Rfam assigns this 370-nucleotide sequence from Occultella aeris to the family "transfer-messenger RNA". Rfam links the family to the GO term RNA catabolic process. It scores 171 bits against the family's covariance model. The family's consensus secondary structure is taken from published work.
RNA sequence: GGGGGUGAUCGGUUUCGACGAUGGUUGUCGUACCAGGAGAAGCGAGUCGAGGAUGCAGGGUUAUCUCGUUAACGCUCCUUGCAAACCAAUAGGUGCCGAUUCCAAGCGCACCGACUUCGCACUCGCCGCCUGAGCGAGCUGUAGAGGUCCGUCAGCCCAGGGUUGCUCUCGACCUGGUUCCUGGCGUCAUCUAGAGAGCCACUGCUCGUAGCCUUUGUCACUGGGGCUACGGGGACAUCUAAGUGACUGGGCCCGUCAGCGACUUGUCUGCGUGAUCGCUGGGGCCGAGAAAAUCUACUAGCAGACUGCACUCGGAGAAGUCCUGGUUCCGCACUGUCGGACGCGGGUUCGAUUCCCGCCACCUCCACCC
Numbered sequence: 001g002g003g004g005g006u007g008a009u010c011g012g013u014u015u016c017g018a019c020g021a022u023g024g025u026u027g028u029c030g031u032a033c034c035a036g037g038a039g040a041a042g043c044g045a046g047u048c049g050a051g052g053a054u055g056c057a058g059g060g061u062u063a064u065c066u067c068g069u070u071a072a073c074g075c076u077c078c079u080u081g082c083a084a085a086c087c088a089a090u091a092g093g094u095g096c097c098g099a100u101u102c103c104a105a106g107c108g109c110a111c112c113g114a115c116u117u118c119g120c121a122c123u124c125g126c127c128g129c130c131u132g133a134g135c136g137a138g139c140u141g142u143a144g145a146g147g148u149c150c151g152u153c154a155g156c157c158c159a160g161g162g163u164u165g166c167u168c169u170c171g172a173c174c175u176g177g178u179u180c181c182u183g184g185c186g187u188c189a190u191c192u193a194g195a196g197a198g199c200c201a202c203u204g205c206u207c208g209u210a211g212c213c214u215u216u217g218u219c220a221c222u223g224g225g226g227c228u229a230c231g232g233g234g235a236c237a238u239c240u241a242a243g244u245g246a247c248u249g250g251g252c253c254c255g256u257c258a259g260c261g262a263c264u265u266g267u268c269u270g271c272g273u274g275a276u277c278g279c280u281g282g283g284g285c286c287g288a289g290a291a292a293a294u295c296u297a298c299u300a301g302c303a304g305a306c307u308g309c310a311c312u313c314g315g316a317g318a319a320g321u322c323c324u325g326g327u328u329c330c331g332c333a334c335u336g337u338c339g340g341a342c343g344c345g346g347g348u349u350c351g352a353u354u355c356c357c358g359c360c361a362c363c364u365c366c367a368c369c370c
Base pairs, nucleotide, nucleotide: 001366002365003364004363005362006361007360019339020338021337022336023335024334025333030329032327033326034325035324036323037322038321043314044313045312046311047310048068049067050066051065052064054083055082056081057080058079059078060077122146123145124144127141128140150186151185152184153183154182155181157177158176159175161174162173163172165199166198167197168196169195170194205233206232207231208230209229210228211227212226213225217247218246219245220244221243250286251285252284253283254282257281258280259279261277262276266306267305268304269303274298343359344358345357346356347355